[Rfam]
RNA sequence: AAAAAGAUCGAACCCGUUGCGUAUCGAACUUGGUUCGAGCUCGAGCAGCGGGUCGAUCCGUGCCA
Numbered sequence: 001a002a003a004a005a006g007a008u009c010g011a012a013c014c015c016g017u018u019g020c021g022u023a024u025c026g027a028a029c030u031u032g033g034u035u036c037g038a039g040c041u042c043g044a045g046c047a048g049c050g051g052g053u054c055g056a057u058c059c060g061u062g063c064c065a
Stems, first nucleotide, its partner, number of pairs: 006058006013052008024044004029039003

Notes: mir-2518 microRNA precursor family: a 65-nucleotide sequence from Drosophila persimilis.